[Rfam]
Nucleotides: 197
Stems, first nucleotide, its partner, number of pairs: 015058005060107004065102002069096003073090003127190012140158006
Number, partner (000 for none) and nucleotide at each position: 001000a002000c003000a004000c005000g006000a007000g008000a009000a010000g011000g012000g013000a014000g015058g016057u017056g018055g019054u020000u021000c022000g023000g024000c025000a026000g027000a028000u029000g030000u031000a032000u033000g034000a035000c036000a037000a038000c039000c040000g041000g042000a043000c044000g045000c046000g047000u048000g049000a050000g051000g052000u053000g054019a055018c056017u057016g058015c059000g060107g061106g062105c063104u064000a065102g066101c067000g068000c069096c070095c071094g072000u073090u074089c075088g076000u077000c078000g079000c080000a081000c082000u083000c084000u085000g086000u087000g088075c089074g090073g091000u092000g093000c094071c095070g096069g097000c098000u099000c100000c101066g102065c103000c104063g105062g106061c107060c108000g109000a110000a111000a112000u113000c114000c115000c116000a117000a118000g119000c120000a121000g122000u123000c124000a125000c126000c127190g128189a129188c130187c131186c132185g133184c134183g135182g136181g137180u138179u139000c140158g141157c142156c143155g144154g145153u146000a147000c148000g149000u150000c151000c152000g153145g154144c155143c156142g157141g158140c159000u160000u161000c162000c163000u164000c165000u166000c167000c168000g169000g170000a171000g172000g173000g174000a175000c176000c177000a178000g179138a180137g181136c182135c183134c184133g185132c186131g187130g188129g189128u190127u191000u192000c193000u194000g195000c196000g197000u

This 197-nucleotide RNA from Streptomyces montanisoli belongs to the Rfam family "Actinobacteria sRNA Ms_IGR-5". The match comes from Rfam's covariance-model search (85 bits). The source organism's lineage runs through Bacteria, Actinomycetota, Kitasatosporales, Streptomycetaceae and Streptomyces. By type it is a small RNA.